[Rfam]
RNA sequence: GAUGAGAUGAUGAGCCUUUCCCCAGAUGAUCGACUUUGAACAUGCUGAGCGCUUUUUUUUUCUCCUUUGAGGAGAUCAAGCCAGGACUCUGAUCACC
Numbered sequence: 001g002a003u004g005a006g007a008u009g010a011u012g013a014g015c016c017u018u019u020c021c022c023c024a025g026a027u028g029a030u031c032g033a034c035u036u037u038g039a040a041c042a043u044g045c046u047g048a049g050c051g052c053u054u055u056u057u058u059u060u061u062c063u064c065c066u067u068u069g070a071g072g073a074g075a076u077c078a079a080g081c082c083a084g085g086a087c088u089c090u091g092a093u094c095a096c097c
Stems, first nucleotide, its partner, number of pairs: 001097001003095003
RNA: Small nucleolar RNA Z103
Organism: Zingiber officinale